[Rfam]
RNA sequence: AGCAAGGGCACUCUGUGUUAUUCAUUCCAUAUGAUAAUUACAAUUUGUUACCUUGCUAGAGCAAAUCUAUCACAUCCUAUUCCUGGCAGCUAGCAUCUCGCUGUCCGGUCAUCUUGAUAGAUACAUUUA
Numbered sequence: 001a002g003c004a005a006g007g008g009c010a011c012u013c014u015g016u017g018u019u020a021u022u023c024a025u026u027c028c029a030u031a032u033g034a035u036a037a038u039u040a041c042a043a044u045u046u047g048u049u050a051c052c053u054u055g056c057u058a059g060a061g062c063a064a065a066u067c068u069a070u071c072a073c074a075u076c077c078u079a080u081u082c083c084u085g086g087c088a089g090c091u092a093g094c095a096u097c098u099c100g101c102u103g104u105c106c107g108g109u110c111a112u113c114u115u116g117a118u119a120g121a122u123a124c125a126u127u128u129a
Stems, first nucleotide, its partner, number of pairs: 002056006010048002014042003017038006024030001063127002065122003073116002080111001083108004089101002
Dot-bracket structure: .((((((..((..(((((((((.(.....)..)))))).)))....))..))))))......(((((.....((.....(..((((..((.........))...))))..)...))...)))...))..

A member of the RNA family "Small nucleolar RNA psi18S-841/snoR66" from Chrysodeixis includens, 129 nucleotides long.
The family is grouped with related families in Rfam's "SNORA28 clan".
NCBI's taxonomy places the organism under Eukaryota, Ecdysozoa, Pancrustacea, Altocrustacea, Chrysodeixis.
Rfam 15.1 lists 108 matches to the family in 46 species.
The base pairs follow the family's consensus structure, which was predicted with RNAfold.
psi18S-841 is a member of the H/ACA class of snoRNA. This family is responsible for guiding the modification of uridine 841 in Drosophila 18S rRNA to pseudouridine.
It is annotated as an H/ACA-box small nucleolar RNA.